[Rfam]
RNA sequence: UUGCGCAAGUGAUAGAUUUGUCGGCAAUCUUCGCAAUCCUCUGUCGCGCCUGGGCAUGUAAGCUUUACCUCAGUUUCACGGCCCGGACGACCUGUCCACCCGGCUCACCCAACCAGGCGAGCGGGCGCCGCCGAUCCCACCGGAUCGUCACGGCACCCGGGUCCGCACUGCCCAACCAGGCGGGCGAGGAAAGCGGCGAGAGCAUCGCCGGCACCGGACACUUUUCCCGAGGGGAGGCCGCAAGGUCUCCCU
Dot-bracket structure: ((((....))))..............................((...........))..................(..(.((((((((.....))))..((.((...((......))...)).)).((((..(((((....)))))....))))....)))).(((.(((((......))))))))..)..)(((((((.....)))))).)..................((((.((((....)))).))))
Numbered sequence: 001u002u003g004c005g006c007a008a009g010u011g012a013u014a015g016a017u018u019u020g021u022c023g024g025c026a027a028u029c030u031u032c033g034c035a036a037u038c039c040u041c042u043g044u045c046g047c048g049c050c051u052g053g054g055c056a057u058g059u060a061a062g063c064u065u066u067a068c069c070u071c072a073g074u075u076u077c078a079c080g081g082c083c084c085g086g087a088c089g090a091c092c093u094g095u096c097c098a099c100c101c102g103g104c105u106c107a108c109c110c111a112a113c114c115a116g117g118c119g120a121g122c123g124g125g126c127g128c129c130g131c132c133g134a135u136c137c138c139a140c141c142g143g144a145u146c147g148u149c150a151c152g153g154c155a156c157c158c159g160g161g162u163c164c165g166c167a168c169u170g171c172c173c174a175a176c177c178a179g180g181c182g183g184g185c186g187a188g189g190a191a192a193g194c195g196g197c198g199a200g201a202g203c204a205u206c207g208c209c210g211g212c213a214c215c216g217g218a219c220a221c222u223u224u225u226c227c228c229g230a231g232g233g234g235a236g237g238c239c240g241c242a243a244g245g246u247c248u249c250c251c252u
Stems, first nucleotide, its partner, number of pairs: 001012004043057002076192001079189001081162004085097004100125002103122002108117002127154004133146005164186003168183005193212001194210006231252004236247004
Rfam assigns this 252-nucleotide RNA from Pseudomonas benzenivorans to the family "Pseudomonas sRNA P24". The source organism's lineage runs through Bacteria, Pseudomonadati, Gammaproteobacteria, Pseudomonadaceae and Pseudomonas. About the family: This small RNA (sRNA) was computationally identified in the genome of the opportunistic pathogen Pseudomonas aeruginosa and its expression verified by Northern blot analysis. P24 is conserved across several Pseudomonas species and in Azotobacter vinelandii. It appears to be consistently located between a hypothetical protein gene and a transcriptional regulator gene (AsnC family) in the genomes of all these species. P24 has a predicted Rho independent terminator at the 3' end but the function of P24 is unknown. The family's consensus secondary structure was predicted with RNAalifold.